[Rfam]
RNA: mir-129 microRNA precursor family
Organism: Scleropages formosus
RNA sequence: GCGAAUCUUUUUGCGGUCUGGGCUUGCUGUUCAUGACUAAGACCCUAGGAAGCCCUUACCCCAAAAAGCAUUUG
Dot-bracket structure: ......(((((((.(((..((((.(.((..................)).).))))..))).)))))))......